The record is a 99-nucleotide RNA sequence from Bacilli bacterium VT-13-104, which matches "TPP riboswitch aptamer (THI element)" in Rfam. Pairs were carried over by alignment from the consensus structure, which is taken from published work. The organism belongs to Bacilli, within Bacteria.
[Rfam]
RNA sequence: CGUGACCACAAGGGGAGCGAAAGCUGAGAGGGAACAAAUUGUUCUUACCCUUCGAACCUGUUAGUUAAUUCUAGCGUAGGGAUGUGGUGAAUAGUUUAC
Numbered sequence: 001c002g003u004g005a006c007c008a009c010a011a012g013g014g015g016a017g018c019g020a021a022a023g024c025u026g027a028g029a030g031g032g033a034a035c036a037a038a039u040u041g042u043u044c045u046u047a048c049c050c051u052u053c054g055a056a057c058c059u060g061u062u063a064g065u066u067a068a069u070u071c072u073a074g075c076g077u078a079g080g081g082a083u084g085u086g087g088u089g090a091a092u093a094g095u096u097u098a099c
Base pairs, nucleotide, nucleotide: 006087007086008085009084010083011051012050013049014048016045017024018023032044033043034042035041057080058079059078060077061074062073063072064071